The record is a 73-nucleotide sequence from Upupa epops, which matches "mir-23 microRNA precursor family" in Rfam.
A reference for the family is Lagos-Quintana et al. (2002), "Identification of tissue-specific microRNAs from mouse", Curr Biol.
Rfam links the family to the GO terms gene silencing by miRNA and RISC complex.

RNA sequence: GGCUGUUCGGGUUCCUGGCAUGAUGAUUUGUGAUUAAGAUUAAAAUCACAUUGCCAGGGAUUACCACACAGCC
Numbered sequence: 001g002g003c004u005g006u007u008c009g010g011g012u013u014c015c016u017g018g019c020a021u022g023a024u025g026a027u028u029u030g031u032g033a034u035u036a037a038g039a040u041u042a043a044a045a046u047c048a049c050a051u052u053g054c055c056a057g058g059g060a061u062u063a064c065c066a067c068a069c070a071g072c073c
Stems, first nucleotide, its partner, number of pairs: 001073002004070003009065002011061010021050002024048006
Rfam 15.1 lists 1,403 matches to the family in 646 species.